[Rfam]
RNA sequence: ACGUGCUCCGGGGUCGGUGAGAAUCCGAACCGGCGGUGACAGUCCGCGACCCGCUGCAUCCGUGUUCGAGAGAACACCGCAGCGGUUGAUCCGGUGUGAUUCCGGGACCGACGGUGAUGCGACGCGACAGCGUCGUCAGUCCGGAUGGGAGGCAGCACAG
Numbered sequence: 001a002c003g004u005g006c007u008c009c010g011g012g013g014u015c016g017g018u019g020a021g022a023a024u025c026c027g028a029a030c031c032g033g034c035g036g037u038g039a040c041a042g043u044c045c046g047c048g049a050c051c052c053g054c055u056g057c058a059u060c061c062g063u064g065u066u067c068g069a070g071a072g073a074a075c076a077c078c079g080c081a082g083c084g085g086u087u088g089a090u091c092c093g094g095u096g097u098g099a100u101u102c103c104g105g106g107a108c109c110g111a112c113g114g115u116g117a118u119g120c121g122a123c124g125c126g127a128c129a130g131c132g133u134c135g136u137c138a139g140u141c142c143g144g145a146u147g148g149g150a151g152g153c154a155g156c157a158c159a160g
Stems, first nucleotide, its partner, number of pairs: 003158005008151001015027003031110002033047004042108002051085007090106005112143003